[Rfam]
RNA sequence: UGGAGGACUGAGAAGGUUGGGCAGCUGGAAAGCAGUGCUACCACAACUGGUUAUAGCCUCCAAUAUUAAAACUCAUAUACAGCAACUCAACCUGAAUAGCCCCUUCAGGCUAGGCUACCUGCUGUAUGUGUGUACAUGCU
Numbered sequence: 001u002g003g004a005g006g007a008c009u010g011a012g013a014a015g016g017u018u019g020g021g022c023a024g025c026u027g028g029a030a031a032g033c034a035g036u037g038c039u040a041c042c043a044c045a046a047c048u049g050g051u052u053a054u055a056g057c058c059u060c061c062a063a064u065a066u067u068a069a070a071a072c073u074c075a076u077a078u079a080c081a082g083c084a085a086c087u088c089a090a091c092c093u094g095a096a097u098a099g100c101c102c103c104u105u106c107a108g109g110c111u112a113g114g115c116u117a118c119c120u121g122c123u124g125u126a127u128g129u130g131u132g133u134a135c136a137u138g139c140u
Base pairs, nucleotide, nucleotide: 002061003060004059005058006057015048016047017046018045020042021041023039024038025037078132079131080130083128084127088124089123097117098116099115101114102113

Notes:
The family of this 140-nucleotide RNA from Synaphobranchus kaupii is "Small nucleolar RNA SNORA47". Taxonomically the source falls in Synaphobranchus (Eukaryota, Chordata, Vertebrata, Elopomorpha). Pairs were carried over by alignment from the consensus structure, which was predicted with WAR. The match comes from Rfam's covariance-model search (57 bits). Rfam 15.1 lists 733 matches to the family in 635 species.